[Rfam]
RNA sequence: AUUGCACUAAAUCUUUUAGACAGCAAAUGUUUUGUCUGUCAAAUUUUAGUGCAAAUAUUAAUGAAACCUGUCGCCUUCUUUUAGAAUUGUUUCAUUUGAAGUGAAUCAGGUUUCUACAUAU
Numbered sequence: 001a002u003u004g005c006a007c008u009a010a011a012u013c014u015u016u017u018a019g020a021c022a023g024c025a026a027a028u029g030u031u032u033u034g035u036c037u038g039u040c041a042a043a044u045u046u047u048a049g050u051g052c053a054a055a056u057a058u059u060a061a062u063g064a065a066a067c068c069u070g071u072c073g074c075c076u077u078c079u080u081u082u083a084g085a086a087u088u089g090u091u092u093c094a095u096u097u098g099a100a101g102u103g104a105a106u107c108a109g110g111u112u113u114c115u116a117c118a119u120a121u
Stems, first nucleotide, its partner, number of pairs: 002054008019040005026033002063114007075101004082094001084092002
RNA: Small nucleolar RNA SNORA68